[Rfam]
RNA: SAM riboswitch aptamer (S box leader)
RNA sequence: UUUUUAUCAAGAGUGACUGAAGGAACAGGCCUAGUGAAGUCACAGCAACCUUCCAAGUGGAGUGGUGCUACCUCCUGCAGAAUGGGUGCAUUCUGGAAGAUAAAGA
Numbered sequence: 001u002u003u004u005u006a007u008c009a010a011g012a013g014u015g016a017c018u019g020a021a022g023g024a025a026c027a028g029g030c031c032u033a034g035u036g037a038a039g040u041c042a043c044a045g046c047a048a049c050c051u052u053c054c055a056a057g058u059g060g061a062g063u064g065g066u067g068c069u070a071c072c073u074c075c076u077g078c079a080g081a082a083u084g085g086g087u088g089c090a091u092u093c094u095g096g097a098a099g100a101u102a103a104a105g106a
Base pairs, nucleotide, nucleotide: 001106002105003104004103005102006101007100008099013043014042015041016040017039021032022031023030026077027076028075029074044069045068046067047066049065050064051062052061053060054059073098078095079094080093081092082091083090